[Rfam]
RNA sequence: UAAGCCUACUUGUGAAAGUAGUUGAACUGACAGAAGUCAGCAGAAGUCAUAGUACGAAGGGAGUUGCAACUCCCUUCGGAAGGAC
Numbered sequence: 001u002a003a004g005c006c007u008a009c010u011u012g013u014g015a016a017a018g019u020a021g022u023u024g025a026a027c028u029g030a031c032a033g034a035a036g037u038c039a040g041c042a043g044a045a046g047u048c049a050u051a052g053u054a055c056g057a058a059g060g061g062a063g064u065u066g067c068a069a070c071u072c073c074c075u076u077c078g079g080a081a082g083g084a085c
Stems, first nucleotide, its partner, number of pairs: 001024002006021006037044002046085003055078008